[Rfam]
RNA sequence: GGCCUCCUAGUGCUUACCACAGGCUAAUGUCCUUACAUUGACUGUUAGAAAGAGGAGGCAGAGCAAACCCACCCUGUAUACACCUGAGCUCCGACUCUUUGCCACAUCUGUGUUGUUAAAGGGAGGAUCUGG
Number, nucleotide and partner (000 for none) at each position: 001g000002g059003c058004c057005u056006c055007c054008u053009a000010g000011u000012g000013c000014u000015u000016a000017c000018c000019a000020c044021a043022g042023g000024c000025u000026a000027a038028u037029g036030u035031c000032c000033u000034u000035a030036c029037a028038u027039u000040g000041a000042c022043u021044g020045u000046u000047a000048g000049a000050a000051a000052g000053a008054g007055g006056a005057g004058g003059c002060a000061g000062a000063g000064c000065a000066a000067a000068c000069c000070c000071a000072c000073c123074c122075u121076g000077u119078a000079u000080a000081c000082a000083c000084c000085u000086g000087a109088g108089c000090u106091c000092c000093g103094a000095c101096u000097c000098u000099u000100u000101g095102c000103c093104a000105c000106a090107u000108c088109u087110g000111u000112g000113u000114u000115g000116u000117u000118a000119a077120a000121g075122g074123g073124a000125g000126g000127a000128u000129c000130u000131g000132g000